[Rfam]
RNA sequence: GGAGGCGGGCGGGCGCCUGGUGGCCCCCACGGUCUUCAACACCGAUGCGGUCGGGCAUCCCGGCCGGGUGGGUUCGAUUCCCAUACGCCUCC
Dot-bracket structure: (((((((.(..((.(((....))).))..((((.......))))...(((((.........)))))..((((.......))))).)))))))
Numbered sequence: 001g002g003a004g005g006c007g008g009g010c011g012g013g014c015g016c017c018u019g020g021u022g023g024c025c026c027c028c029a030c031g032g033u034c035u036u037c038a039a040c041a042c043c044g045a046u047g048c049g050g051u052c053g054g055g056c057a058u059c060c061c062g063g064c065c066g067g068g069u070g071g072g073u074u075c076g077a078u079u080c081c082c083a084u085a086c087g088c089c090u091c092c
Stems, first nucleotide, its partner, number of pairs: 001092007009084001012027002015024003030044004048066005069083004

Shown here is a 92-nucleotide RNA sequence from Streptomyces sp. PT12, a member of the family "Selenocysteine transfer RNA". The source organism's lineage runs through Bacteria, Bacillati, Actinomycetes, Streptomycetaceae and Streptomyces. The base pairs follow the family's consensus structure, which is taken from published work.